The family of this 277-nucleotide RNA sequence from Colobus angolensis is "Mason-Pfizer monkey virus packaging signal". Lineage of the source: Eukaryota > Dipnotetrapodomorpha > Mammalia > Colobinae > Colobus angolensis. Rfam links the family to the GO term viral genome packaging. For this family Rfam cites "Mutational analysis of the predicted secondary RNA structure of the Mason-Pfizer monkey virus packaging signal" (Mustafa et al., Virus Res, 2004). The family's consensus secondary structure was predicted with PFOLD. The match comes from Rfam's covariance-model search (212 bits). By type it is a cis-regulatory element.
RNA sequence: UGGUGCCUGGAAAGGGACCUGGACACGGGGGAAAAAGUGAGGAAGAAGGCAUUAAAGUCGGCCAAAAGUAAAAGUGGAAGAAAAACUCCUCCAGACGCCGCGGGAGCCUGCUGCGUCAGAACCAGAUGUGAGUAACAGUGCCUGAUUAUGGGACAAGAAUUAAGCCAACAUCAGAUUUAUGUAGGACAGUUAAAAGAGGCUUUAAGAACACGAGGAGUAAAGGUUAAAAGUAAUGAUUUGUUUAGAUUUUUUGAUUUUGUAAAGGAUACCUGCCCUU
Numbered sequence: 001u002g003g004u005g006c007c008u009g010g011a012a013a014g015g016g017a018c019c020u021g022g023a024c025a026c027g028g029g030g031g032a033a034a035a036a037g038u039g040a041g042g043a044a045g046a047a048g049g050c051a052u053u054a055a056a057g058u059c060g061g062c063c064a065a066a067a068g069u070a071a072a073a074g075u076g077g078a079a080g081a082a083a084a085a086c087u088c089c090u091c092c093a094g095a096c097g098c099c100g101c102g103g104g105a106g107c108c109u110g111c112u113g114c115g116u117c118a119g120a121a122c123c124a125g126a127u128g129u130g131a132g133u134a135a136c137a138g139u140g141c142c143u144g145a146u147u148a149u150g151g152g153a154c155a156a157g158a159a160u161u162a163a164g165c166c167a168a169c170a171u172c173a174g175a176u177u178u179a180u181g182u183a184g185g186a187c188a189g190u191u192a193a194a195a196g197a198g199g200c201u202u203u204a205a206g207a208a209c210a211c212g213a214g215g216a217g218u219a220a221a222g223g224u225u226a227a228a229a230g231u232a233a234u235g236a237u238u239u240g241u242u243u244a245g246a247u248u249u250u251u252u253g254a255u256u257u258u259g260u261a262a263a264g265g266a267u268a269c270c271u272g273c274c275c276u277u
Stems, first nucleotide, its partner, number of pairs: 006031003014026001015024001038046001086130001088128001090126002096119001099115005138154002141152004161204003164200003211253008221239006262277004267272001